[Rfam]
RNA sequence: CCUGAAGAACGAGGUGCAGGAGGUGGUUUUGCUCGGCGCUCAGCAGGGGCCACAUCUCUACCUGCAGCAACUUGACGGCCUCCGUGUCCUUCUCGUGUG
Numbered sequence: 001c002c003u004g005a006a007g008a009a010c011g012a013g014g015u016g017c018a019g020g021a022g023g024u025g026g027u028u029u030u031g032c033u034c035g036g037c038g039c040u041c042a043g044c045a046g047g048g049g050c051c052a053c054a055u056c057u058c059u060a061c062c063u064g065c066a067g068c069a070a071c072u073u074g075a076c077g078g079c080c081u082c083c084g085u086g087u088c089c090u091u092c093u094c095g096u097g098u099g
Stems, first nucleotide, its partner, number of pairs: 006096001007094002011091004019083006026076003030069004036065003046061001048059002
The family of this 99-nucleotide sequence from Ovis aries is "mir-1184 microRNA precursor family". The base pairs follow the family's consensus structure, which was predicted with RNAalifold. It scores 81 bits against the family's covariance model. The organism belongs to Ovis, within Eukaryota.